[Rfam]
RNA sequence: UGAGAUCGUUGCGACUGGCGAUGAGGUGGGACACCACCGGGGAGCAGCACGAGCUAAGACCUCACGAUCGUACGCCUGGGACGCGAGG
Number, nucleotide and partner (000 for none) at each position: 001u000002g000003a000004g000005a000006u000007c000008g048009u047010u046011g045012c044013g000014a000015c041016u040017g076018g075019c074020g073021a000022u000023g000024a000025g000026g037027u036028g035029g034030g000031a000032c000033a000034c029035c028036a027037c026038c000039g000040g016041g015042g000043a000044g012045c011046a010047g009048c008049a000050c000051g000052a000053g000054c000055u000056a000057a000058g000059a000060c000061c000062u000063c000064a000065c083066g082067a000068u080069c079070g000071u000072a000073c020074g019075c018076c017077u000078g000079g069080g068081a000082c066083g065084c000085g000086a000087g000088g000
Shown here is an 88-nucleotide sequence from Arthrobacter psychrolactophilus, a member of the family "ZMP/ZTP riboswitch aptamer (pfl RNA motif)".